[Rfam]
Rfam assigns this 506-nucleotide part of an RNA from Brettanomyces bruxellensis to the family "Eukaryotic large subunit ribosomal RNA". Rfam's curators put it in the seed alignment. Taxonomically the source falls in Brettanomyces (Eukaryota, Fungi, Dikarya, Saccharomycotina). For this family Rfam cites "Crystal structure of the ribosome at 5.5 A resolution" (Yusupov et al., Science, 2001).
RNA sequence: UAGAAUAAUGUAGAUAAGGGAAGUCGGCAACAUAGAUCCGUAACUUCGGGAUAAGGAUUGGCUCUAAGGGUCGGGCAGAGUGGGUUGUUGGGAGAAGGGUCUUGCGGAGGAGGAGAUAGCUGUGCACUUGUGUGCGGUGGUUUCCACCACGGCGAGGCCUAGACGCCGAUAACAGGCACCAGCCUUCGGGCUUGCCGUCCGCUCUGCGAUUAACGACCGACUUAGAACUGGUACGGACAAGGGGAAUCUGACUGUCUAAUUAAAGCAUAGCAUUGCGAAGGUCAGAAAGUGAUGUUGACGCAAUGUGAUUUCUGCCCAGUGCUCUGAAUGUCAAAGUGAAGAAAUUCAACGAAGCGCGGGUAAACGGCGGGAGUAACUAUGACUCUCUUAAGGUAGCCAAAUGCCUCGUCAUCUAACUAGUGACGCGCAUGAAUGGAUUAAUGAGAUUCCCACUGUCCCUAUCUACUAUCUAGCGAAACCACAGCCAAGGGAACGGGCUUGGCAGA
Numbered sequence: 001u002a003g004a005a006u007a008a009u010g011u012a013g014a015u016a017a018g019g020g021a022a023g024u025c026g027g028c029a030a031c032a033u034a035g036a037u038c039c040g041u042a043a044c045u046u047c048g049g050g051a052u053a054a055g056g057a058u059u060g061g062c063u064c065u066a067a068g069g070g071u072c073g074g075g076c077a078g079a080g081u082g083g084g085u086u087g088u089u090g091g092g093a094g095a096a097g098g099g100u101c102u103u104g105c106g107g108a109g110g111a112g113g114a115g116a117u118a119g120c121u122g123u124g125c126a127c128u129u130g131u132g133u134g135c136g137g138u139g140g141u142u143u144c145c146a147c148c149a150c151g152g153c154g155a156g157g158c159c160u161a162g163a164c165g166c167c168g169a170u171a172a173c174a175g176g177c178a179c180c181a182g183c184c185u186u187c188g189g190g191c192u193u194g195c196c197g198u199c200c201g202c203u204c205u206g207c208g209a210u211u212a213a214c215g216a217c218c219g220a221c222u223u224a225g226a227a228c229u230g231g232u233a234c235g236g237a238c239a240a241g242g243g244g245a246a247u248c249u250g251a252c253u254g255u256c257u258a259a260u261u262a263a264a265g266c267a268u269a270g271c272a273u274u275g276c277g278a279a280g281g282u283c284a285g286a287a288a289g290u291g292a293u294g295u296u297g298a299c300g301c302a303a304u305g306u307g308a309u310u311u312c313u314g315c316c317c318a319g320u321g322c323u324c325u326g327a328a329u330g331u332c333a334a335a336g337u338g339a340a341g342a343a344a345u346u347c348a349a350c351g352a353a354g355c356g357c358g359g360g361u362a363a364a365c366g367g368c369g370g371g372a373g374u375a376a377c378u379a380u381g382a383c384u385c386u387c388u389u390a391a392g393g394u395a396g397c398c399a400a401a402u403g404c405c406u407c408g409u410c411a412u413c414u415a416a417c418u419a420g421u422g423a424c425g426c427g428c429a430u431g432a433a434u435g436g437a438u439u440a441a442u443g444a445g446a447u448u449c450c451c452a453c454u455g456u457c458c459c460u461a462u463c464u465a466c467u468a469u470c471u472a473g474c475g476a477a478a479c480c481a482c483a484g485c486c487a488a489g490g491g492a493a494c495g496g497g498c499u500u501g502g503c504a505g506a
Stems, first nucleotide, its partner, number of pairs: 001472004010466007018458003035059005044049001060229002063226006069218005075207009084173003088169004097160009107150001109148002112145006119138008230234001242451007249443002253267003270306008279295001281293004310437003314368003319365002321361004326357001329356003337348004369387006388392001408424005485502005